Rfam assigns this 117-nucleotide RNA from Pseudorhodobacter sp. E13 to the family "ALIL pseudoknot". A reference for the family is Mazauric et al. (2008), "Apical loop-internal loop RNA pseudoknots: a new type of stimulator of -1 translational frameshifting in bacteria", J Biol Chem. Pairs were carried over by alignment from the consensus structure, which is taken from published work. The organism belongs to Pseudorhodobacter, within Bacteria. Rfam 15.1 lists 2,146 matches to the family in 1,098 species. The match comes from Rfam's covariance-model search (112 bits).

RNA sequence: AGCUUAUUUUGCGCAGGCGGAACUCGACCGCCCAUUCAAACCAUGAUCGCGUUUGUCGACGAUCACCGGGCAAUUCAUGGGGUCGAGUCAAUUUGCAGAACCCUGCAGAUUGCCCCA
Number, nucleotide and partner (000 for none) at each position: 001a000002g000003c000004u000005u000006a000007u000008u000009u000010u000011g000012c000013g000014c000015a000016g032017g031018c030019g029020g028021a000022a000023c000024u000025c000026g000027a000028c020029c019030g018031c017032c016033c000034a000035u000036u000037c000038a000039a000040a000041c000042c000043a000044u000045g000046a000047u000048c000049g000050c000051g000052u000053u000054u000055g000056u000057c000058g000059a000060c000061g000062a000063u000064c000065a000066c000067c000068g000069g000070g000071c000072a000073a000074u000075u000076c000077a000078u117079g116080g115081g114082g113083u000084c000085g000086a000087g000088u000089c112090a111091a000092u109093u108094u107095g106096c105097a104098g103099a000100a000101c000102c000103c098104u097105g096106c095107a094108g093109a092110u000111u090112g089113c082114c081115c080116c079117a078